[Rfam]
RNA sequence: CCUCAGGGACGGCCCUGAGCUCACACCACAUCACCUCAGGGACGGCCCUG
Numbered sequence: 001c002c003u004c005a006g007g008g009a010c011g012g013c014c015c016u017g018a019g020c021u022c023a024c025a026c027c028a029c030a031u032c033a034c035c036u037c038a039g040g041g042a043c044g045g046c047c048c049u050g
Stems, first nucleotide, its partner, number of pairs: 002019007037050005
A member of the RNA family "Guanidine-II riboswitch aptamer (mini-ykkC)" from Rhinoptilus africanus, 50 nucleotides long. It scores 36 bits against the family's covariance model. Taxonomically the source falls in Rhinoptilus (Eukaryota, Teleostomi, Dipnotetrapodomorpha, Theropoda).